[Rfam]
RNA sequence: GAGAACGGAACUUCUCCCGUAGAGAGAAGUCAGUUCCGGCGUUUCGGGGAGGAAACGCUCGUUAAUUAAAAAUAAAAAAGCUCGCCGGGUCUUAUCCCCCCUGUGCGAGCUUUUUUUUGC
Numbered sequence: 001g002a003g004a005a006c007g008g009a010a011c012u013u014c015u016c017c018c019g020u021a022g023a024g025a026g027a028a029g030u031c032a033g034u035u036c037c038g039g040c041g042u043u044u045c046g047g048g049g050a051g052g053a054a055a056c057g058c059u060c061g062u063u064a065a066u067u068a069a070a071a072a073u074a075a076a077a078a079a080g081c082u083c084g085c086c087g088g089g090u091c092u093u094a095u096c097c098c099c100c101c102u103g104u105g106c107g108a109g110c111u112u113u114u115u116u117u118u119g120c
Stems, first nucleotide, its partner, number of pairs: 001037001003036004008031002011029004017024001038059008063068001075115011086103004
RNA: Caulobacter sRNA CrfA